[Rfam]
RNA sequence: GGCUCUGUGAUUACAUGCCUGAUAUGGGCAAUAUACGCUAUUCCGACUCGAUUCAUGAGCU
Numbered sequence: 001g002g003c004u005c006u007g008u009g010a011u012u013a014c015a016u017g018c019c020u021g022a023u024a025u026g027g028g029c030a031a032u033a034u035a036c037g038c039u040a041u042u043c044c045g046a047c048u049c050g051a052u053u054c055a056u057g058a059g060c061u
Stems, first nucleotide, its partner, number of pairs: 001061005
Small nucleolar RNA U54: a 61-nucleotide RNA from Vitis rotundifolia. By type it is a C/D-box small nucleolar RNA. A reference for the family is Chen et al. (2003), "The high diversity of snoRNAs in plants: identification and comparative study of 120 snoRNA genes from Oryza sativa", Nucleic Acids Res. The family has 21 seed sequences and 614 matches in Rfam 15.1. Pairs were carried over by alignment from the consensus structure, which was predicted with PFOLD. The source organism's lineage runs through Eukaryota, Embryophyta, Tracheophyta, Gunneridae and Vitis. Clan: U54 clan. U54 is a C/D box small nucleolar RNA, which acts as a methylation guide for 18S ribosomal RNA in plants.